Shown here is a 303-nucleotide RNA from Capsicum annuum, a member of the family "Plant signal recognition particle RNA". It is annotated as a non-coding RNA gene. Clan: SRP clan. Gene Ontology terms of the family: signal recognition particle, endoplasmic reticulum targeting and SRP-dependent cotranslational protein targeting to membrane, signal sequence recognition. The family's consensus secondary structure is taken from published work.
RNA sequence: GCUGAGCUAAGUAAUGUGGGCUUGUUACCCAAAUGGGGGCAUUAAUGUGGUGGGAUGUUGGGCAUUCCCAAAUGGUUGGACUUGGUGGGCUAGUUUCUGGCCUGCCCUAUCCAAGCACAGAGUUGGAUCACGGGGCCUAAUUGAAAGAAUGGGUUUCUUGAUCCCUAAAGCGGGGUGGACUGCGUGAGGCUGGCUUCACAGAGCAACGAAUAGCUCCCGCUCUGUGCAGUGGAAGGACAACGGGCUGGUGUCUUUCAAGUCCAGUAACGCCUGAUGGGCUGCUCCAGUUAAACCACCUCUUUU
Numbered sequence: 001g002c003u004g005a006g007c008u009a010a011g012u013a014a015u016g017u018g019g020g021c022u023u024g025u026u027a028c029c030c031a032a033a034u035g036g037g038g039g040c041a042u043u044a045a046u047g048u049g050g051u052g053g054g055a056u057g058u059u060g061g062g063c064a065u066u067c068c069c070a071a072a073u074g075g076u077u078g079g080a081c082u083u084g085g086u087g088g089g090c091u092a093g094u095u096u097c098u099g100g101c102c103u104g105c106c107c108u109a110u111c112c113a114a115g116c117a118c119a120g121a122g123u124u125g126g127a128u129c130a131c132g133g134g135g136c137c138u139a140a141u142u143g144a145a146a147g148a149a150u151g152g153g154u155u156u157c158u159u160g161a162u163c164c165c166u167a168a169a170g171c172g173g174g175g176u177g178g179a180c181u182g183c184g185u186g187a188g189g190c191u192g193g194c195u196u197c198a199c200a201g202a203g204c205a206a207c208g209a210a211u212a213g214c215u216c217c218c219g220c221u222c223u224g225u226g227c228a229g230u231g232g233a234a235g236g237a238c239a240a241c242g243g244g245c246u247g248g249u250g251u252c253u254u255u256c257a258a259g260u261c262c263a264g265u266a267a268c269g270c271c272u273g274a275u276g277g278g279c280u281g282c283u284c285c286a287g288u289u290a291a292a293c294c295a296c297c298u299c300u301u302u303u
Stems, first nucleotide, its partner, number of pairs: 001040003004023005010017001028037003044302002047299001049297005056290002058287003061283004066278001068277003074271003078262008087253003091250002097248008106236002110233004115227009125164006132157008141148002165170001172217005181210001183208003190201003